[Rfam]
RNA: FMN riboswitch aptamer (RFN element)
Organism: Clostridiales bacterium KLE1615
RNA sequence: AAUAUUCUUUGGGGCGGGGUGUAAAUCCCCACUGGCGGUAAAGUCCGCGACCCGCAUUUUUGCGGUUGAUUCGGUGAGUGCAAAGAUAGUGAUGAACAAUUCUUCACAACUCCGAAACCAACAGUAAAGUGAUGCAGCAUUAUUAGCAAAAGCUGUGUCCAAAGUCUGGAUGGGAAAAGAAAGAG
Numbered sequence: 001a002a003u004a005u006u007c008u009u010u011g012g013g014g015c016g017g018g019g020u021g022u023a024a025a026u027c028c029c030c031a032c033u034g035g036c037g038g039u040a041a042a043g044u045c046c047g048c049g050a051c052c053c054g055c056a057u058u059u060u061u062g063c064g065g066u067u068g069a070u071u072c073g074g075u076g077a078g079u080g081c082a083a084a085g086a087u088a089g090u091g092a093u094g095a096a097c098a099a100u101u102c103u104u105c106a107c108a109a110c111u112c113c114g115a116a117a118c119c120a121a122c123a124g125u126a127a128a129g130u131g132a133u134g135c136a137g138c139a140u141u142a143u144u145a146g147c148a149a150a151a152g153c154u155g156u157g158u159c160c161a162a163a164g165u166c167u168g169g170a171u172g173g174g175a176a177a178a179g180a181a182a183g184a185g
Stems, first nucleotide, its partner, number of pairs: 003183001005181006017029003032129001033120002035048004043118002052065002070116005122168003